[Rfam]
About this RNA
Rfam assigns this 137-nucleotide RNA from Bos mutus to the family "Small nucleolar RNA SNORA68". A search with the family's covariance model found it, with a score of 72 bits.
RNA sequence: UUAUCACUGAGCCACCAAGGAAGCCUGCUGUUCCUUAUAGCUAUAGUUUAAGCAGAGGUGCUAGUACCAAGUGGAUUUCAUUGCCUUUGGGAGGCUCUGGCCUUGCCCCUCAAAAUGAAUUUGAAGGUUCUACAGCU
Numbered sequence: 001u002u003a004u005c006a007c008u009g010a011g012c013c014a015c016c017a018a019g020g021a022a023g024c025c026u027g028c029u030g031u032u033c034c035u036u037a038u039a040g041c042u043a044u045a046g047u048u049u050a051a052g053c054a055g056a057g058g059u060g061c062u063a064g065u066a067c068c069a070a071g072u073g074g075a076u077u078u079c080a081u082u083g084c085c086u087u088u089g090g091g092a093g094g095c096u097c098u099g100g101c102c103u104u105g106c107c108c109c110u111c112a113a114a115a116u117g118a119a120u121u122u123g124a125a126g127g128u129u130c131u132a133c134a135g136c137u
Stems, first nucleotide, its partner, number of pairs: 002063002005060004023048001025046003030041003073130006086114006093107003
Rfam links the family to the GO terms nucleolus and RNA processing. Lineage of the source: Eukaryota > Theria > Eutheria > Bovinae > Bos. Pairs were carried over by alignment from the consensus structure, which was predicted with PFOLD. For this family Rfam cites "The family of box ACA small nucleolar RNAs is defined by an evolutionarily conserved secondary structure and ubiquitous sequence elements essential for RNA accumulation" (Ganot et al., Genes Dev, 1997).